Overview:
The family of this 104-nucleotide RNA sequence from Clostridium uliginosum is "Glycine riboswitch aptamer". The family is grouped with related families in Rfam's "Glycine riboswitch clan".
RNA sequence: AUGAAGAUAGUGGGAGAGUUGUUAUUAUAUUAGAAAUUUAAGGUUAGAUUAUAAUAACACACCGAAGAGGGAAAUCUUUCAGGUAUUAGGACCGCUAUUGGACG
Numbered sequence: 001a002u003g004a005a006g007a008u009a010g011u012g013g014g015a016g017a018g019u020u021g022u023u024a025u026u027a028u029a030u031u032a033g034a035a036a037u038u039u040a041a042g043g044u045u046a047g048a049u050u051a052u053a054a055u056a057a058c059a060c061a062c063c064g065a066a067g068a069g070g071g072a073a074a075u076c077u078u079u080c081a082g083g084u085a086u087u088a089g090g091a092c093c094g095c096u097a098u099u100g101g102a103c104g
Stems, first nucleotide, its partner, number of pairs: 006099008020059010061084003064080002068078003